[Rfam]
RNA sequence: AUAUCCGAUGAGUAGGUUCUUAGCUACAUGCUUACUGGUCUCGGCUUGGAAUAUGAACCCCUUGUUGCUUCAAUCAUGGCUCGUGAUGAGCGAGUGAGCCUCGCUAGCUUCUAUGUGUAUUUGCUUAGCGUCGACC
Numbered sequence: 001a002u003a004u005c006c007g008a009u010g011a012g013u014a015g016g017u018u019c020u021u022a023g024c025u026a027c028a029u030g031c032u033u034a035c036u037g038g039u040c041u042c043g044g045c046u047u048g049g050a051a052u053a054u055g056a057a058c059c060c061c062u063u064g065u066u067g068c069u070u071c072a073a074u075c076a077u078g079g080c081u082c083g084u085g086a087u088g089a090g091c092g093a094g095u096g097a098g099c100c101u102c103g104c105u106a107g108c109u110u111c112u113a114u115g116u117g118u119a120u121u122u123g124c125u126u127a128g129c130g131u132c133g134a135c136c
Stems, first nucleotide, its partner, number of pairs: 006133003085105001087103004
Annotation
Rfam assigns this 136-nucleotide sequence from Triticum aestivum to the family "Small nucleolar RNA Z247". The match comes from Rfam's covariance-model search (48 bits). Gene Ontology terms of the family: nucleolus and RNA processing. The family's RNA type in Rfam is C/D-box small nucleolar RNA.